[Rfam]
RNA sequence: UUAAAGCACUUUUGUAUCUCGCUCUGGAUAAGAGCAUCUGCCAAAUGCCAGAAA
Numbered sequence: 001u002u003a004a005a006g007c008a009c010u011u012u013u014g015u016a017u018c019u020c021g022c023u024c025u026g027g028a029u030a031a032g033a034g035c036a037u038c039u040g041c042c043a044a045a046u047g048c049c050a051g052a053a054a
Stems, first nucleotide, its partner, number of pairs: 013043001014041003021035005
A member of the RNA family "UnaL2 LINE 3' element" from Hemibagrus wyckioides, 54 nucleotides long. By type it is a cis-regulatory element. The eel long interspersed element (LINE) UnaL2 and its partner short interspersed element (SINE) share a conserved 3' tail containing a stem-loop that is critical for their retrotransposition. Presumably, the first step of retrotransposition is the recognition of their 3' tails by UnaL2-encoded reverse transcriptase. The base pairs follow the family's consensus structure, which is taken from published work.